[Rfam]
Nucleotides: 078
Base pairs, nucleotide, nucleotide: 012037013036017032018031019030021028022027040072041071042070045068046067047066048063049062050061051060052059053058
Number, partner (000 for none) and nucleotide at each position: 001000a002000a003000u004000u005000a006000u007000c008000a009000g010000a011000g012037c013036c014000a015000a016000a017032c018031c019030c020000g021028c022027c023000g024000c025000g026000a027022g028021g029000g030019g031018g032017g033000g034000a035000c036013g037012g038000a039000a040072a041071g042070c043000a044000a045068c046067g047066g048063g049062u050061c051060u052059u053058c054000c055000a056000g057000g058053g059052a060051a061050g062049a063048c064000g065000g066047c067046c068045g069000a070042g071041c072040u073000g074000c075000g076000g077000a078000a